The family of this 86-nucleotide sequence from Aminipila luticellarii is "ZMP/ZTP riboswitch aptamer (pfl RNA motif)". The organism belongs to Aminipila, within Bacteria. The family's consensus secondary structure is taken from published work. A reference for the family is Jones and Ferre-D'Amare (2015), "Recognition of the bacterial alarmone ZMP through long-distance association of two RNA subdomains", Nat Struct Mol Biol. A search with the family's covariance model found it, with a score of 65 bits.
RNA sequence: AGCUGUUUUUGCGACUGACGGAAAUAGGUGGGCUGAACCACCGGGAAACAAAAACAGAUCUCAUGCCGACCGUCUGGGCAGUACCA
Numbered sequence: 001a002g003c004u005g006u007u008u009u010u011g012c013g014a015c016u017g018a019c020g021g022a023a024a025u026a027g028g029u030g031g032g033c034u035g036a037a038c039c040a041c042c043g044g045g046a047a048a049c050a051a052a053a054a055c056a057g058a059u060c061u062c063a064u065g066c067c068g069a070c071c072g073u074c075u076g077g078g079c080a081g082u083a084c085c086a
Stems, first nucleotide, its partner, number of pairs: 003057009015045002017074005028041004064080004